[Rfam]
RNA sequence: GUGCCCUUUUAAGGUUGAUGCAGUGCUAUAAGAGGCUAACACUGAAGGAUAAAGGAAACCUUUAUAAAACACAGAGAAGAGACUACAAAACUCUUUGAAUACUGCCUGCAGUUACAGCU
Number, nucleotide and partner (000 for none) at each position: 001g000002u051003g050004c000005c048006c047007u046008u045009u044010u000011a000012a000013g000014g040015u039016u038017g037018a000019u035020g000021c032022a000023g000024u000025g000026c000027u000028a000029u000030a000031a000032g021033a000034g000035g019036c000037u017038a016039a015040c014041a000042c000043u000044g009045a008046a007047g006048g005049a000050u003051a002052a000053a000054g000055g000056a000057a000058a113059c000060c111061u110062u000063u108064a107065u000066a000067a000068a000069a000070c000071a000072c097073a096074g095075a094076g093077a092078a000079g000080a000081g091082a000083c000084u089085a000086c000087a000088a000089a084090a000091c081092u077093c076094u075095u074096u073097g072098a000099a000100u000101a000102c000103u000104g000105c000106c000107u064108g063109c000110a061111g060112u000113u058114a000115c000116a000117g000118c000119u000
This 119-nucleotide RNA from Marmota monax belongs to the Rfam family "Small nucleolar RNA SNORA26". Pairs were carried over by alignment from the consensus structure, which was predicted with RNAalifold. Its Rfam clan is "SNORA27 clan". From the family's description: The snoRNA HBI-6 belong to the H/ACA family of snoRNAs, guiding the pseudouridylation of position U4522 if the 28S rRNA. HBI-6 is the human orthologue of mouse MBI-6 snoRNA. The family's RNA type in Rfam is H/ACA-box small nucleolar RNA. The source organism's lineage runs through Eukaryota, Deuterostomia, Dipnotetrapodomorpha, Mammalia and Marmota.